[Rfam]
RNA: c-di-GMP-I riboswitch aptamer
RNA sequence: AGCAGAAAAGGGCAAACCUGUUGAAAAACAGGGACGCAAAGCCGAGGAUCUAAGGCAAAAACAAGCUGCUAGGAUGGCCGGGCUGCCUGG
Numbered sequence: 001a002g003c004a005g006a007a008a009a010g011g012g013c014a015a016a017c018c019u020g021u022u023g024a025a026a027a028a029c030a031g032g033g034a035c036g037c038a039a040a041g042c043c044g045a046g047g048a049u050c051u052a053a054g055g056c057a058a059a060a061a062c063a064a065g066c067u068g069c070u071a072g073g074a075u076g077g078c079c080g081g082g083c084u085g086c087c088u089g090g
Base pairs, nucleotide, nucleotide: 012037013036017032018031019030020029021028022027040084041083042082043081046079047078048075049074050073055069056068057067